The family of this 127-nucleotide RNA sequence from Oryctolagus cuniculus is "U4atac minor spliceosomal RNA". From the family's description: U4atac is an essential component of the minor U12-type spliceosome complex which is required for removal of the rarer class of eukaryotic introns (AT-AC, U12-type). The family's RNA type in Rfam is spliceosomal small nuclear RNA. The match comes from Rfam's covariance-model search (114 bits).
RNA sequence: GUGAUCCUUUUCUUGGGGUUGCAUUACUGUCCAAUGAACGCAUAGUGAGGGCAGUACUGCUAACACCUAAACAACAUGUUUGCAUCAGUUAAAGCUUCAGUUUUAGCUUGGUGCAAUUUUUGAAAAA
Numbered sequence: 001g002u003g004a005u006c007c008u009u010u011u012c013u014u015g016g017g018g019u020u021g022c023a024u025u026a027c028u029g030u031c032c033a034a035u036g037a038a039c040g041c042a043u044a045g046u047g048a049g050g051g052c053a054g055u056a057c058u059g060c061u062a063a064c065a066c067c068u069a070a071a072c073a074a075c076a077u078g079u080u081u082g083c084a085u086c087a088g089u090u091a092a093a094g095c096u097u098c099a100g101u102u103u104u105a106g107c108u109u110g111g112u113g114c115a116a117u118u119u120u121u122g123a124a125a126a127a
Stems, first nucleotide, its partner, number of pairs: 006018004021060003026055007038046002082114006090105006
Dot-bracket structure: .....((((.....))))..(((..(((((((.....((.....))..)))))))..))).....................((((((..((((((....))))))...)))))).............